Notes:
Rfam assigns this 93-nucleotide sequence from Bactrocera dorsalis to the family "mir-282 microRNA precursor family". The organism belongs to Bactrocera dorsalis complex, within Eukaryota.
[Rfam]
RNA sequence: GUUCCUGUUUCACCUAACCUCUUUUAGGCUAUGUCUGAUAUUCUUUAAACUCACACAGACAAAGCCUAGUAGAGGCUAGAUUCAGUCCAAGAA
Numbered sequence: 001g002u003u004c005c006u007g008u009u010u011c012a013c014c015u016a017a018c019c020u021c022u023u024u025u026a027g028g029c030u031a032u033g034u035c036u037g038a039u040a041u042u043c044u045u046u047a048a049a050c051u052c053a054c055a056c057a058g059a060c061a062a063a064g065c066c067u068a069g070u071a072g073a074g075g076c077u078a079g080a081u082u083c084a085g086u087c088c089a090a091g092a093a
Stems, first nucleotide, its partner, number of pairs: 012081001014079003018075003027066004032061005